[Rfam]
RNA sequence: GCGGCACAUCAGGAGUUGGGCCGACGCCCGACGCCAACCUGCCUCCCGGGCAAGGUGGCGCUCCCGCAAGGGAGGAUGUGGCCGAACCGGCAACCAACGGGUCCCAG
Numbered sequence: 001g002c003g004g005c006a007c008a009u010c011a012g013g014a015g016u017u018g019g020g021c022c023g024a025c026g027c028c029c030g031a032c033g034c035c036a037a038c039c040u041g042c043c044u045c046c047c048g049g050g051c052a053a054g055g056u057g058g059c060g061c062u063c064c065c066g067c068a069a070g071g072g073a074g075g076a077u078g079u080g081g082c083c084g085a086a087c088c089g090g091c092a093a094c095c096a097a098c099g100g101g102u103c104c105c106a107g
Base pairs, nucleotide, nucleotide: 006079007078008077009076010075015032017031018029019028020027021026033059034058035057038055039054040053041051042050043049047101081091082090083089084088

Background: The record is a 107-nucleotide RNA from Roseococcus sp. SYP-B2431, which matches "SAM-I/IV (S-adenosyl methionine) riboswitch aptamer" in Rfam. The family's consensus secondary structure is taken from published work. Rfam 15.1 lists 567 matches to the family in 508 species. A search with the family's covariance model found it, with a score of 53 bits. NCBI's taxonomy places the organism under Bacteria, Pseudomonadati, Pseudomonadota, Acetobacterales, Roseococcus.